[Rfam]
RNA: Plant signal recognition particle RNA
Organism: Oryza barthii
RNA sequence: GCCGAGCUCAGUAGUGAGAGCUUGUAACCCAUGUGGGGGCAUCAGGUGGUGUGGAUGGUUGGUGCUGAAUUUGGGCUUGGGUUCAUGUUGUUGUUAACUAUGCUGGCUUGCCCGUUCCAAGUUGAGUAGUGGGUGGGAGGGGCUUCGGCGAAAGCCUUGGGUCUCUCCGGCCCUGAAGUUGGCAGGCACGGCGUGAGGCUGGCUUCACAGAGCAGCGAUCACUGCUCGCUUCCAACUGUGGAAGGAUAAACAGGCCGCUGCACCAUGGGCCCGCUUCUGGCCCAGAGUUCCACUAUUACAGACCACCAUCUUU
Numbered sequence: 001g002c003c004g005a006g007c008u009c010a011g012u013a014g015u016g017a018g019a020g021c022u023u024g025u026a027a028c029c030c031a032u033g034u035g036g037g038g039g040c041a042u043c044a045g046g047u048g049g050u051g052u053g054g055a056u057g058g059u060u061g062g063u064g065c066u067g068a069a070u071u072u073g074g075g076c077u078u079g080g081g082u083u084c085a086u087g088u089u090g091u092u093g094u095u096a097a098c099u100a101u102g103c104u105g106g107c108u109u110g111c112c113c114g115u116u117c118c119a120a121g122u123u124g125a126g127u128a129g130u131g132g133g134u135g136g137g138a139g140g141g142g143c144u145u146c147g148g149c150g151a152a153a154g155c156c157u158u159g160g161g162u163c164u165c166u167c168c169g170g171c172c173c174u175g176a177a178g179u180u181g182g183c184a185g186g187c188a189c190g191g192c193g194u195g196a197g198g199c200u201g202g203c204u205u206c207a208c209a210g211a212g213c214a215g216c217g218a219u220c221a222c223u224g225c226u227c228g229c230u231u232c233c234a235a236c237u238g239u240g241g242a243a244g245g246a247u248a249a250a251c252a253g254g255c256c257g258c259u260g261c262a263c264c265a266u267g268g269g270c271c272c273g274c275u276u277c278u279g280g281c282c283c284a285g286a287g288u289u290c291c292a293c294u295a296u297u298a299c300a301g302a303c304c305a306c307c308a309u310c311u312u313u
Stems, first nucleotide, its partner, number of pairs: 001040003004023006028037003044311008056300002058297001060295001062293003068288001070286008079272008092262002095260002104257007112245002115243005120237005126232001128230003132172003136168010147156003173178001181226005190219001192217003199210003